[Rfam]
RNA sequence: GCUUUUCCCCCCCCAGGCCUGCUGGUGUAUACUACAGAGAAGCCUCCAGGUUUCCGGGGGUGAAAUGC
Numbered sequence: 001g002c003u004u005u006u007c008c009c010c011c012c013c014c015a016g017g018c019c020u021g022c023u024g025g026u027g028u029a030u031a032c033u034a035c036a037g038a039g040a041a042g043c044c045u046c047c048a049g050g051u052u053u054c055c056g057g058g059g060g061u062g063a064a065a066u067g068c
Stems, first nucleotide, its partner, number of pairs: 001068002004065001008060001010059003016053002020048002024044003027035002